A member of the RNA family "MIR2619 microRNA precursor family" from Medicago truncatula, 249 nucleotides long.

RNA sequence: UUUUGGCCCCCUAUGUUUUGCCCCCUAUGCACUUUUGGCCCCCUAGGCCAAUUUUGACCAAGUCAAUGCUGACGUGGCACCACAUGUGUAAUUUUUUUAUUUUUUAAUUAAAAAAUUUUAAAAAAAUAAAAAAAGUAUUUUUUUAAUAAUUAAAAAAAUUACACAUGUGACGUCACGUCAACAUUGACUUGGUCAAAAUUGGCCUAGGGGGUCAAAAGUGCAAAGGGGGCAAAACAUAGGGGACCAAAA
Numbered sequence: 001u002u003u004u005g006g007c008c009c010c011c012u013a014u015g016u017u018u019u020g021c022c023c024c025c026u027a028u029g030c031a032c033u034u035u036u037g038g039c040c041c042c043c044u045a046g047g048c049c050a051a052u053u054u055u056g057a058c059c060a061a062g063u064c065a066a067u068g069c070u071g072a073c074g075u076g077g078c079a080c081c082a083c084a085u086g087u088g089u090a091a092u093u094u095u096u097u098u099a100u101u102u103u104u105u106a107a108u109u110a111a112a113a114a115a116u117u118u119u120a121a122a123a124a125a126a127u128a129a130a131a132a133a134a135g136u137a138u139u140u141u142u143u144u145a146a147u148a149a150u151u152a153a154a155a156a157a158a159u160u161a162c163a164c165a166u167g168u169g170a171c172g173u174c175a176c177g178u179c180a181a182c183a184u185u186g187a188c189u190u191g192g193u194c195a196a197a198a199u200u201g202g203c204c205u206a207g208g209g210g211g212u213c214a215a216a217a218g219u220g221c222a223a224a225g226g227g228g229g230c231a232a233a234a235c236a237u238a239g240g241g242g243a244c245c246a247a248a249a
Base pairs, nucleotide, nucleotide: 001249002248004246005245006244008242012238013237014236015235016234017233018232019231020230021229022228023227024226025225026224028222029221030220031219032218033217034216035215036214037213038212039211040210041209042208043207044206045205072178073177075175076174077173078172081169082168083167084166085165086164087163088162089161090160091159092158093157094156095155096154097153098152099151
A search with the family's covariance model found it, with a score of 115 bits. NCBI's taxonomy places the organism under Eukaryota, Spermatophyta, rosids, Fabaceae, Medicago.